[Rfam]
Rfam assigns this 112-nucleotide sequence from Lutibacter sp. Hel_I_33_5 to the family "Bacteroidete tryptophan peptide leader RNA". It scores 52 bits against the family's covariance model. Lineage of the source: Bacteria > Flavobacteriia > Flavobacteriales > Flavobacteriaceae > Lutibacter.

RNA sequence: GUCUCUACAUUUGCCAUUCAAUGAUGAAACAAAUAAACAUAUGGUGGUGGAACUCUCUUAAUCAAUAAGUGAGAAUAGAUCCUAUAUGUAAAAAAUAAAGAAAAGGCUUAUC
Numbered sequence: 001g002u003c004u005c006u007a008c009a010u011u012u013g014c015c016a017u018u019c020a021a022u023g024a025u026g027a028a029a030c031a032a033a034u035a036a037a038c039a040u041a042u043g044g045u046g047g048u049g050g051a052a053c054u055c056u057c058u059u060a061a062u063c064a065a066u067a068a069g070u071g072a073g074a075a076u077a078g079a080u081c082c083u084a085u086a087u088g089u090a091a092a093a094a095a096u097a098a099a100g101a102a103a104a105g106g107c108u109u110a111u112c
Stems, first nucleotide, its partner, number of pairs: 037089008046081003053073003058068003